[Rfam]
This 176-nucleotide RNA from Ruminococcus sp. AM42-11 belongs to the Rfam family "Clostridiales-1 RNA". The family's RNA type in Rfam is small RNA. Rfam 15.1 lists 1,172 matches to the family in 137 species.

RNA sequence: UGAUACCAGGGUCAAAAGGUCAGAAAGCCGAUGCAAGCUUGCUUGCAAGAGGCUUUUUGACCUCUUGACCCGCCAAAAACAUGAGUAAGUAGCCAUUUUUCAAAGAAAAAUGAGCGGAUUACGAAUGUUUUGGAGGAUUGCGGGAGCAGCGUAGCUGCGUAGCAAUCCGGGUAUCA
Numbered sequence: 001u002g003a004u005a006c007c008a009g010g011g012u013c014a015a016a017a018g019g020u021c022a023g024a025a026a027g028c029c030g031a032u033g034c035a036a037g038c039u040u041g042c043u044u045g046c047a048a049g050a051g052g053c054u055u056u057u058u059g060a061c062c063u064c065u066u067g068a069c070c071c072g073c074c075a076a077a078a079a080c081a082u083g084a085g086u087a088a089g090u091a092g093c094c095a096u097u098u099u100u101c102a103a104a105g106a107a108a109a110a111u112g113a114g115c116g117g118a119u120u121a122c123g124a125a126u127g128u129u130u131u132g133g134a135g136g137a138u139u140g141c142g143g144g145a146g147c148a149g150c151g152u153a154g155c156u157g158c159g160u161a162g163c164a165a166u167c168c169g170g171g172u173a174u175c176a
Stems, first nucleotide, its partner, number of pairs: 001176007010070004017063013032048001033046005074132004079128004085122004092115002094112008135168007146158004